This 46-nucleotide RNA sequence belongs to the Rfam family "L31-Actinobacteria ribosomal protein leader".
RNA sequence: CGAGCACCGGUUCCCGCCCACCGCGCACGCGGGCGACCCGGCGGCU
Numbered sequence: 001c002g003a004g005c006a007c008c009g010g011u012u013c014c015c016g017c018c019c020a021c022c023g024c025g026c027a028c029g030c031g032g033g034c035g036a037c038c039c040g041g042c043g044g045c046u
Base pairs, nucleotide, nucleotide: 003046004045005044007041008040009039010038015035016034017033018032019031023030
The family's RNA type in Rfam is cis-regulatory leader.